The record is a 46-nucleotide sequence from Novipirellula maiorica, which matches "Acido-Lenti-1 RNA" in Rfam. It scores 42 bits against the family's covariance model.
[Rfam]
RNA sequence: UCACGGACUUACGUCCGUGGCUAUCGCCUGCCAUCGCUUCGCGAUU
Numbered sequence: 001u002c003a004c005g006g007a008c009u010u011a012c013g014u015c016c017g018u019g020g021c022u023a024u025c026g027c028c029u030g031c032c033a034u035c036g037c038u039u040c041g042c043g044a045u046u
Base pairs, nucleotide, nucleotide: 001020002019003018004017005016006015007014008013033045034044035043036042037041